[Rfam]
Nucleotides: 125
Base pairs, nucleotide, nucleotide: 016092017091018090019089021087022086023085024084025083026082027081029079031077032076033075034074036072037071038070042055043054044053056066057065058064096119097118098117099116100115101114102113103112104111105110
Number, partner (000 for none) and nucleotide at each position: 001000g002000a003000u004000g005000a006000a007000a008000c009000a010000g011000c012000u013000g014000c015000c016092g017091u018090u019089c020000u021087u022086c023085u024084u025083c026082g027081c028000c029079u030000u031077c032076u033075u034074u035000u036072u037071u038070a039000c040000c041000u042055u043054c044053c045000g046000u047000u048000g049000a050000c051000c052000g053044g054043g055042a056066g057065g058064c059000a060000a061000u062000u063000c064058g065057u066056c067000g068000u069000a070038u071037a072036a073000g074034a075033a076032a077031g078000c079029a080000u081027g082026c083025g084024a085023a086022g087021a088000c089019g090018a091017a092016u093000a094000a095000c096119a097118a098117g099116g100115c101114c102113u103112c104111c105110c106000a107000a108000c109000c110105g111104g112103g113102a114101g115100g116099c117098u118097u119096u120000u121000u122000u123000u124000u125000u